RNA sequence: AAGUGAAACCUCUCACAACGGAUCGUUAGGCACGUACCUGCCUAUGAAAGGAAAGUUAU
Numbered sequence: 001a002a003g004u005g006a007a008a009c010c011u012c013u014c015a016c017a018a019c020g021g022a023u024c025g026u027u028a029g030g031c032a033c034g035u036a037c038c039u040g041c042c043u044a045u046g047a048a049a050g051g052a053a054a055g056u057u058a059u
Stems, first nucleotide, its partner, number of pairs: 009051003013047003027044006
Rfam assigns this 59-nucleotide sequence from Scardovia inopinata to the family "msiK RNA". The family's RNA type in Rfam is cis-regulatory element.